[Rfam]
RNA sequence: GCCCUUAUAGCACAGUGGUAGUGCGUUGCACUUGUAUGUUGACGUGAUUGCUUGUGUAAUCACUAGUACGUGAUGCAAAGGUCCGUUGUUCAAUCCAGCGUGGGGGCA
Numbered sequence: 001g002c003c004c005u006u007a008u009a010g011c012a013c014a015g016u017g018g019u020a021g022u023g024c025g026u027u028g029c030a031c032u033u034g035u036a037u038g039u040u041g042a043c044g045u046g047a048u049u050g051c052u053u054g055u056g057u058a059a060u061c062a063c064u065a066g067u068a069c070g071u072g073a074u075g076c077a078a079a080g081g082u083c084c085g086u087u088g089u090u091c092a093a094u095c096c097a098g099c100g101u102g103g104g105g106g107c108a
Stems, first nucleotide, its partner, number of pairs: 001107007010024004026078005084100005

A member of the RNA family "tRNA" from Ceratobasidium theobromae, 108 nucleotides long. The base pairs follow the family's consensus structure, which is taken from published work. Rfam classes the family as a transfer RNA.